[Rfam]
RNA sequence: GUGCAUCCAGUAAGAAUUAAACUUAUGAAUUCGCCAAUUAUGAGUUGGAUGCUUUAACUAUUCAGCCAUGGAUGU
Numbered sequence: 001g002u003g004c005a006u007c008c009a010g011u012a013a014g015a016a017u018u019a020a021a022c023u024u025a026u027g028a029a030u031u032c033g034c035c036a037a038u039u040a041u042g043a044g045u046u047g048g049a050u051g052c053u054u055u056a057a058c059u060a061u062u063c064a065g066c067c068a069u070g071g072a073u074g075u
Stems, first nucleotide, its partner, number of pairs: 003075006010026005040069003044066008
RNA: Plastid-ycf2 5UTR RNA
Organism: Gossypium trilobum